[Rfam]
RNA sequence: GAAGCAAGCCAGACCGCCGCUGGGGCGAUCUCGGAAACGAGGCCCUGGAGGAAGGUCCGGACUGCAUAGAGCGGCGUAGCAGCUAACGGCUGCCCGGCGAAAGCCGAGGAUCAGAGCAACAGAGACGAGUUCUGUUGGGACAACCCGAUGGGUGGUCUGUGAGGCGCCAGCGCAAGCUGGCGUGGGGUGGAGCGAAAGCUUCGCACCAUCGCGCGAAAGCGCGAACCGAACAGCACCUCUGUCGGGCUCUGCCCGACGGAGGUGAAACGGGCAAUCUCUACGCGCAGCAACACCAAGUAGGCCAGCGUCGAUGCGGCUCGCAGAGCUGGCGGGUAGGUGGCAACGAGCCGGGCAGCGAUGCCCGGCCCAGAGGAAUGGCGGUCACGCCGUCCGGCCCGCAAGGGCAGGGCGGUGCACAGAAUCCGGCCUAUCGGCUUGCUUCACUC
Dot-bracket structure: ((((((((((((((((((.(((((((...............)))))))....[[[.[[[[[((((...[[[[.((((((((((.....)))))(((((....)))).)((...((((.............(((((((((................................................................................................................)))))))))..........))..)))))))))))))...((((......((((((.....(((.]]]])))..)))))).....)))).......((((((((....))))))))..........)))))))......................................]]]]]]]].).))))))))))....

Overview:
Rfam assigns this 446-nucleotide RNA sequence from Roseateles saccharophilus to the family "Bacterial RNase P class A". Pairs were carried over by alignment from the consensus structure, which is taken from published work. A search with the family's covariance model found it, with a score of 183 bits. It is annotated as a ribozyme.